Notes
Small Cajal body specific RNA 3: a 141-nucleotide sequence from Suricata suricatta. Rfam links the family to the GO terms RNA processing, nucleolus and Cajal body. scaRNAs are a specific class of small nuclear RNAs which localise to the Cajal bodies and guide the modification of RNA polymerase II transcribed spliceosomal RNAs U1, U2, U4, U5 and U12.
[Rfam]
RNA sequence: AAUGGAACCUGCAGGAACCAACCACGUGGACAAAUGGAAAAAUGCCUUUUGUCUACAGAUUGCAGCGAUCCUACAUAAACAUGGAGGCCUCUGUCUGGCAUAGGGCAGCUGGCUGAGUCUGAUCGUUCCCCUCCAUACAGU
Numbered sequence: 001a002a003u004g005g006a007a008c009c010u011g012c013a014g015g016a017a018c019c020a021a022c023c024a025c026g027u028g029g030a031c032a033a034a035u036g037g038a039a040a041a042a043u044g045c046c047u048u049u050u051g052u053c054u055a056c057a058g059a060u061u062g063c064a065g066c067g068a069u070c071c072u073a074c075a076u077a078a079a080c081a082u083g084g085a086g087g088c089c090u091c092u093g094u095c096u097g098g099c100a101u102a103g104g105g106c107a108g109c110u111g112g113c114u115g116a117g118u119c120u121g122a123u124c125g126u127u128c129c130c131c132u133c134c135a136u137a138c139a140g141u
Base pairs, nucleotide, nucleotide: 004071005070006069009065010064011063012062026056027055028054029053030052031051036048037047083134084133085132086131087130091125093123094122095121097119098118099117101115102114103113
Dot-bracket structure: ...(((..((((.............((((((....((.........))..)))))).....))))...)))...........(((((...(.(((.(((.(((.........))).))).))).)....))))).......

Lineage of the source: Eukaryota > Gnathostomata > Amniota > Herpestidae > Suricata. By type it is a small Cajal body RNA.